[Rfam]
RNA sequence: GCGAGGUGCCUUUCAGGCAUCCUCUCCCAAAACUCUCAAGGCCCGCCGGCAACGGCAGGGCCUUUUUUCUUGGUUGA
Numbered sequence: 001g002c003g004a005g006g007u008g009c010c011u012u013u014c015a016g017g018c019a020u021c022c023u024c025u026c027c028c029a030a031a032a033c034u035c036u037c038a039a040g041g042c043c044c045g046c047c048g049g050c051a052a053c054g055g056c057a058g059g060g061c062c063u064u065u066u067u068u069c070u071u072g073g074u075u076g077a
Base pairs, nucleotide, nucleotide: 008018009017010016011015040062041061042060043059044058045056046055047054048053
Dot-bracket structure: .......((((...)))).....................(((((((((....)))).)))))...............
A member of the RNA family "Makes More Granules Regulator RNA (mmgR)" from Croceibacterium xixiisoli, 77 nucleotides long.
SuhB later renamed mmgR (makes more granules regulator) was a putative non-coding RNA found multiple times in the Agrobacterium tumefaciens genome and related alpha-proteobacteria. Other non-coding RNAs uncovered in the same analysis include: speF, ybhL, metA, and serC.Several studies inSinorhizobium meliloti showed that suhB element is indeed a non-coding RNA:firstly it was detected on Northern blot and called Sm8RNA, secondly in an RNAseq study referred to as SmelC689.The mutant phenotype's (strain lacking the small RNA) cytoplasm contains higher content of polyhydroxybutyrate (PBH)storage granules than wild type strain.